[Rfam]
RNA sequence: GCUACCUGGAGGCUGAGGCUGGAGGAUUUCUUGAGCUCAGGAGCUCUGAGCUGCAGUGGGCUAUGUUGAGCAGGGGUCCACACUAAGUUCAGUAUAGAUAUGGUGUUCCUGGGGGAGCCUUGGACCACCAGGUCUUCUAAGGAGGGGUGAACCGGCCCAGGUCGGGAACGGAGCAGGUCAAAUCCCCCGUACUGCUCAGUAGUGGGAUCGCCCCUGUGAAUAGAUGCUGCAGUUCAGCCUGAGCAACAAGGUGAGACCCAGUCUUUU
Numbered sequence: 001g002c003u004a005c006c007u008g009g010a011g012g013c014u015g016a017g018g019c020u021g022g023a024g025g026a027u028u029u030c031u032u033g034a035g036c037u038c039a040g041g042a043g044c045u046c047u048g049a050g051c052u053g054c055a056g057u058g059g060g061c062u063a064u065g066u067u068g069a070g071c072a073g074g075g076g077u078c079c080a081c082a083c084u085a086a087g088u089u090c091a092g093u094a095u096a097g098a099u100a101u102g103g104u105g106u107u108c109c110u111g112g113g114g115g116a117g118c119c120u121u122g123g124a125c126c127a128c129c130a131g132g133u134c135u136u137c138u139a140a141g142g143a144g145g146g147g148u149g150a151a152c153c154g155g156c157c158c159a160g161g162u163c164g165g166g167a168a169c170g171g172a173g174c175a176g177g178u179c180a181a182a183u184c185c186c187c188c189g190u191a192c193u194g195c196u197c198a199g200u201a202g203u204g205g206g207a208u209c210g211c212c213c214c215u216g217u218g219a220a221u222a223g224a225u226g227c228u229g230c231a232g233u234u235c236a237g238c239c240u241g242a243g244c245a246a247c248a249a250g251g252u253g254a255g256a257c258c259c260a261g262u263c264u265u266u267u
Stems, first nucleotide, its partner, number of pairs: 015265008027254002030251003035244007046237013061223004066218001070217008078206002081204005087197001090194006096135004101130005107124003111120003136142002144187004154179004162171003
Metazoan signal recognition particle RNA: a 267-nucleotide RNA sequence from Poecilia formosa. The organism belongs to Poecilia, within Eukaryota. The match comes from Rfam's covariance-model search (219 bits). The family's consensus secondary structure is taken from published work. The family is grouped with related families in Rfam's "SRP clan".